This 193-nucleotide RNA sequence from Anopheles gambiae belongs to the Rfam family "drz-agam-2-2 ribozyme". Its family is annotated with catalytic activity in the Gene Ontology. The literature on the family includes a 2009 paper in Science by Webb et al., "Widespread occurrence of self-cleaving ribozymes". Taxonomically the source falls in Anopheles gambiae (Eukaryota, Altocrustacea, Allotriocarida, Diptera). The family has 5 seed sequences and 486 matches in Rfam 15.1.

RNA sequence: CCCAGUGUUUUUCCUUUUUCCUGUUUUUCCAGAAACCCCUCGAGGGAUAGUACCGGCUCUUCCAUCCAACUCCUAUUCCGACACGUCCUCGUCGUGCAGAGUGGUAGCAUGUGCCACCAUAUAUCCUAGGUUGGAUACACGGGCUAGAUCCAACCCUUCGGGCGGAUGUUGGCAUAUGACGAACCAGGAGGGG
Numbered sequence: 001c002c003c004a005g006u007g008u009u010u011u012u013c014c015u016u017u018u019u020c021c022u023g024u025u026u027u028u029c030c031a032g033a034a035a036c037c038c039c040u041c042g043a044g045g046g047a048u049a050g051u052a053c054c055g056g057c058u059c060u061u062c063c064a065u066c067c068a069a070c071u072c073c074u075a076u077u078c079c080g081a082c083a084c085g086u087c088c089u090c091g092u093c094g095u096g097c098a099g100a101g102u103g104g105u106a107g108c109a110u111g112u113g114c115c116a117c118c119a120u121a122u123a124u125c126c127u128a129g130g131u132u133g134g135a136u137a138c139a140c141g142g143g144c145u146a147g148a149u150c151c152a153a154c155c156c157u158u159c160g161g162g163c164g165g166a167u168g169u170u171g172g173c174a175u176a177u178g179a180c181g182a183a184c185c186a187g188g189a190g191g192g193g
Base pairs, nucleotide, nucleotide: 012101014099015098017096023067026064029056030055071193072192073191074190076189077188079187083095084094085093087104088103108178109177110176111175112174113173114172115171118168123167124166125165126164131153132152133151134150135149136148155162156161
Dot-bracket structure: ...........[.[[.[.....(..(..((........................)).......)..)...((((.((.(...(((.{{....)))].]].].}}...((((((((..(....((((....((((((...........)))))).((....)).)))))..))))))))........)))))))